[Rfam]
RNA sequence: CAAAAGGGGCUGUGGCCGGCGGACCCGUUCGCCCUGGAUGCCAUGGCGGGUACCAUUGCGGUAACUGCUACAGAAUCGCCAUCAAGAGAUUUUGCAGCCACAAUUUUUCGGUCGUCUUGACCUAAACGAUGGCCCCUUGGCUUCGCUCAAGC
Numbered sequence: 001c002a003a004a005a006g007g008g009g010c011u012g013u014g015g016c017c018g019g020c021g022g023a024c025c026c027g028u029u030c031g032c033c034c035u036g037g038a039u040g041c042c043a044u045g046g047c048g049g050g051u052a053c054c055a056u057u058g059c060g061g062u063a064a065c066u067g068c069u070a071c072a073g074a075a076u077c078g079c080c081a082u083c084a085a086g087a088g089a090u091u092u093u094g095c096a097g098c099c100a101c102a103a104u105u106u107u108u109c110g111g112u113c114g115u116c117u118u119g120a121c122c123u124a125a126a127c128g129a130u131g132g133c134c135c136c137u138u139g140g141c142u143u144c145g146c147u148c149a150a151g152c
Stems, first nucleotide, its partner, number of pairs: 008099005013043004044070006051063004071094007117150004128143002131141001133139001
Background: U11 spliceosomal RNA: a 152-nucleotide RNA from Thamnocephalis sphaerospora. The family has 72 seed sequences and 2,595 matches in Rfam 15.1. By type it is a spliceosomal small nuclear RNA. A search with the family's covariance model found it, with a score of 59 bits. Taxonomically the source falls in Thamnocephalis (Eukaryota, Opisthokonta, Fungi, Zoopagomycotina).